[Rfam]
RNA sequence: AUCCUCCUGUUCCCUUUCCCAUCGGAUCUGAACACCGGUCUUGGUGGUCGUAAAAGGAGGAAAAGUAAUAGUGAAGCUGGCCUGAAUGUUGUAAUCUGGUAUAUGGCAUGUGGGCUAGUUUCAGACAGGU
Numbered sequence: 001a002u003c004c005u006c007c008u009g010u011u012c013c014c015u016u017u018c019c020c021a022u023c024g025g026a027u028c029u030g031a032a033c034a035c036c037g038g039u040c041u042u043g044g045u046g047g048u049c050g051u052a053a054a055a056g057g058a059g060g061a062a063a064a065g066u067a068a069u070a071g072u073g074a075a076g077c078u079g080g081c082c083u084g085a086a087u088g089u090u091g092u093a094a095u096c097u098g099g100u101a102u103a104u105g106g107c108a109u110g111u112g113g114g115c116u117a118g119u120u121u122c123a124g125a126c127a128g129g130u
Base pairs, nucleotide, nucleotide: 003060004059005058006057007056019047020046021045022044023043025040026039027038028037077118078117079116080115081114082113083112090108091107092106
RNA: Small nucleolar RNA SNORA61